[Rfam]
RNA sequence: CCAGCAGGCCGGUCUGUCGCUCCGGAGUAAUUCGGGGAGGAAAGUCCGGACACCACAGUGCAGUAUAGCGGGUAACGCCCGUCCGUCGAAAGGCGAGGACCAGUGCAACAGAAAGUAUGUACAGUUCGGCUGUAGUGAAAUCGGUAAACUCUAUGCGGUGAAACACCAUGUAGGCCAGCGUUUAAGGGCUGCACGUCCAAGCUGGCGGGUAGGUGGAUAGAACUUCGGAGCAAUUCGAAGUCCAGAUAAAUGACAGGCACUCCGGGGCUUUGGUCCCGGGGCUACAGAAUCCGGCUUACGGCCUGCUUUUUAU
Numbered sequence: 001c002c003a004g005c006a007g008g009c010c011g012g013u014c015u016g017u018c019g020c021u022c023c024g025g026a027g028u029a030a031u032u033c034g035g036g037g038a039g040g041a042a043a044g045u046c047c048g049g050a051c052a053c054c055a056c057a058g059u060g061c062a063g064u065a066u067a068g069c070g071g072g073u074a075a076c077g078c079c080c081g082u083c084c085g086u087c088g089a090a091a092g093g094c095g096a097g098g099a100c101c102a103g104u105g106c107a108a109c110a111g112a113a114a115g116u117a118u119g120u121a122c123a124g125u126u127c128g129g130c131u132g133u134a135g136u137g138a139a140a141u142c143g144g145u146a147a148a149c150u151c152u153a154u155g156c157g158g159u160g161a162a163a164c165a166c167c168a169u170g171u172a173g174g175c176c177a178g179c180g181u182u183u184a185a186g187g188g189c190u191g192c193a194c195g196u197c198c199a200a201g202c203u204g205g206c207g208g209g210u211a212g213g214u215g216g217a218u219a220g221a222a223c224u225u226c227g228g229a230g231c232a233a234u235u236c237g238a239a240g241u242c243c244a245g246a247u248a249a250a251u252g253a254c255a256g257g258c259a260c261u262c263c264g265g266g267g268c269u270u271u272g273g274u275c276c277c278g279g280g281g282c283u284a285c286a287g288a289a290u291c292c293g294g295c296u297u298a299c300g301g302c303c304u305g306c307u308u309u310u311u312a313u
Stems, first nucleotide, its partner, number of pairs: 003307009012258007020037007042297003046294005051160004058194004063156005068082005083097001084095004098151002103149002105145002120134006164215004174206006186198004222241008
RNA: Bacterial RNase P class A
Organism: Robiginitalea myxolifaciens